[Rfam]
RNA sequence: GUACGUCUUCAGGGCGGGGUGGAAUUCCCCACCGGCGGUAUGCCGGCCAGCGCCGCAAGGCAAGGCCAGCGAGCCCGCGAGCGCCCGCGCGAGUGUUUCAGUCCGGUGGUGUCAGCCAUCGGCGCGCGGGGUCAGCAGAUCUGGUGCGAAGCCAGAGCCGACGGUCAGAGUCCGGAUGAAAGAAGAUGUGC
Numbered sequence: 001g002u003a004c005g006u007c008u009u010c011a012g013g014g015c016g017g018g019g020u021g022g023a024a025u026u027c028c029c030c031a032c033c034g035g036c037g038g039u040a041u042g043c044c045g046g047c048c049a050g051c052g053c054c055g056c057a058a059g060g061c062a063a064g065g066c067c068a069g070c071g072a073g074c075c076c077g078c079g080a081g082c083g084c085c086c087g088c089g090c091g092a093g094u095g096u097u098u099c100a101g102u103c104c105g106g107u108g109g110u111g112u113c114a115g116c117c118a119u120c121g122g123c124g125c126g127c128g129g130g131g132u133c134a135g136c137a138g139a140u141c142u143g144g145u146g147c148g149a150a151g152c153c154a155g156a157g158c159c160g161a162c163g164g165u166c167a168g169a170g171u172c173c174g175g176a177u178g179a180a181a182g183a184a185g186a187u188g189u190g191c
Base pairs, nucleotide, nucleotide: 003189004188005187006186007185008184009183010182017029018028019027031171032170033160034159035078036077037076038075073158074157081136082135140156141155142154143153144152162174163173164172